RNA sequence: UAAAAGUGAAUAGUUUUCUCUCAUAUAAUCGCAGGAAUAUGGCCUGCGAGUUUCUACCGAACCCCGUAAAGGCUCGACUAUGAGUAGCGAUAUAUUGGUG
Numbered sequence: 001u002a003a004a005a006g007u008g009a010a011u012a013g014u015u016u017u018c019u020c021u022c023a024u025a026u027a028a029u030c031g032c033a034g035g036a037a038u039a040u041g042g043c044c045u046g047c048g049a050g051u052u053u054c055u056a057c058c059g060a061a062c063c064c065c066g067u068a069a070a071g072g073c074u075c076g077a078c079u080a081u082g083a084g085u086a087g088c089g090a091u092a093u094a095u096u097g098g099u100g
Base pairs, nucleotide, nucleotide: 020084021083022082023081024080025079029049030048031047032046033045034044035043058076059075060074062072063071

Notes
This 100-nucleotide sequence from Paenibacillus sp. IHBB 10380 belongs to the Rfam family "Purine riboswitch aptamer". Pairs were carried over by alignment from the consensus structure, which is taken from published work.